The family of this 82-nucleotide RNA sequence from Manihot esculenta is "Small nucleolar RNA snoR53Y". The base pairs follow the family's consensus structure, which was predicted with WAR. The organism belongs to Manihot, within Eukaryota. Gene Ontology terms of the family: nucleolus and RNA processing. By type it is a C/D-box small nucleolar RNA. On this family, see Brown et al., RNA 2001: "Multiple snoRNA gene clusters from Arabidopsis". The match comes from Rfam's covariance-model search (57 bits). The family has 7 seed sequences and 513 matches in Rfam 15.1. Clan: snoR53 clan.
[Rfam]
RNA sequence: AUUCCCGAUGAUGCAUUGCUUCUUCGUGAACCAUGCUAAUGCUGAUCAUUGCAUGACUGAAACAUUAUCCCCUGAGGGAAGA
Numbered sequence: 001a002u003u004c005c006c007g008a009u010g011a012u013g014c015a016u017u018g019c020u021u022c023u024u025c026g027u028g029a030a031c032c033a034u035g036c037u038a039a040u041g042c043u044g045a046u047c048a049u050u051g052c053a054u055g056a057c058u059g060a061a062a063c064a065u066u067a068u069c070c071c072c073u074g075a076g077g078g079a080a081g082a
Base pairs, nucleotide, nucleotide: 002080003079004078005077